The family of this 135-nucleotide RNA sequence from Salmonella enterica is "Enterobacteria sRNA STnc130". Rfam's curators put it in the seed alignment. Pairs were carried over by alignment from the consensus structure, which was predicted with WAR.
[Rfam]
RNA sequence: UAUAUCGAAAAAGUAGAAAAAUAGUGUUAAAAACUGACCUUCAUUCGAAAUCAGUAUUACCCCUAAUAGGGUAGGGAUUAUUGUCCGGUAUCAAACUGGCAUAAAAAAAGCGCCCGAAGGCGCUUUUUAGAAGAG
Dot-bracket structure: ............................................................((......))....................................(.((((((....)))))).).........